BsrC: an 89-nucleotide RNA from Enterococcus faecium. From the family's description: The 301 nucleotide sequence from Kouji Nakamura has been trimmed to a highly conserved ~85 nucleotide long core to form this family. Rfam classes the family as a small RNA. The source organism's lineage runs through Bacteria, Bacillota, Bacilli, Enterococcaceae and Enterococcus faecium. The family has 29 seed sequences and 572 matches in Rfam 15.1. The sequence is in the family's curated seed alignment. Pairs were carried over by alignment from the consensus structure, which was predicted with CMfinder. The literature on the family includes a 2008 paper in Gene by Saito et al., "Novel small RNA-encoding genes in the intergenic regions of Bacillus subtilis".

[Rfam]
Nucleotides: 089
Base pairs, nucleotide, nucleotide: 036068037067040063041062042059043058044057045056046055047054048053
Number, partner (000 for none) and nucleotide at each position: 001000u002000c003000u004000c005000a006000u007000u008000u009000a010000a011000a012000c013000g014000a015000u016000g017000u018000a019000u020000u021000c022000c023000c024000u025000a026000a027000c028000c029000u030000c031000u032000a033000a034000u035000a036068c037067a038000u039000c040063c041062u042059u043058g044057u045056a046055a047054c048053u049000c050000u051000g052000a053048a054047g055046u056045u057044a058043c059042g060000c061000c062041a063040g064000u065000u066000u067037u068036g069000a070000a071000u072000a073000a074000a075000u076000u077000u078000c079000a080000u081000a082000a083000a084000a085000a086000c087000a088000a089000a